[Rfam]
Notes
The record is an 88-nucleotide RNA sequence from Myotis lucifugus, which matches "mir-9195 microRNA precursor family" in Rfam. The family's consensus secondary structure was predicted with RNAalifold. Its family is annotated with RISC complex and miRNA-mediated post-transcriptional gene silencing in the Gene Ontology.

RNA sequence: AGAGGCCCAUCCGUGGCCAGGGUGGAAUGAUUGCCUCGUCGCCAUGGCGACAGAGCAAGCAUUCCUCCUGGCCGCUCACGCUGCCUGC
Numbered sequence: 001a002g003a004g005g006c007c008c009a010u011c012c013g014u015g016g017c018c019a020g021g022g023u024g025g026a027a028u029g030a031u032u033g034c035c036u037c038g039u040c041g042c043c044a045u046g047g048c049g050a051c052a053g054a055g056c057a058a059g060c061a062u063u064c065c066u067c068c069u070g071g072c073c074g075c076u077c078a079c080g081c082u083g084c085c086u087g088c
Stems, first nucleotide, its partner, number of pairs: 004085003013075006021068002024065006031058004038051005